This 72-nucleotide RNA from Rousettus aegyptiacus belongs to the Rfam family "Small nucleolar RNA SNORD19". The match comes from Rfam's covariance-model search (92 bits). The family's RNA type in Rfam is C/D-box small nucleolar RNA. Its family is annotated with nucleolus and RNA processing in the Gene Ontology. On this family, see Huttenhofer et al., EMBO J 2001: "RNomics: an experimental approach that identifies 201 candidates for novel, small, non-messenger RNAs in mouse".
RNA sequence: GAGGUAUGAUGAAAUGAACAGUCUGAUUGUCACUGAAGACUGAUAAGAUCCAACUCUGACCUCAGCAAAGCC
Numbered sequence: 001g002a003g004g005u006a007u008g009a010u011g012a013a014a015u016g017a018a019c020a021g022u023c024u025g026a027u028u029g030u031c032a033c034u035g036a037a038g039a040c041u042g043a044u045a046a047g048a049u050c051c052a053a054c055u056c057u058g059a060c061c062u063c064a065g066c067a068a069a070g071c072c
Base pairs, nucleotide, nucleotide: 001063002062003061004060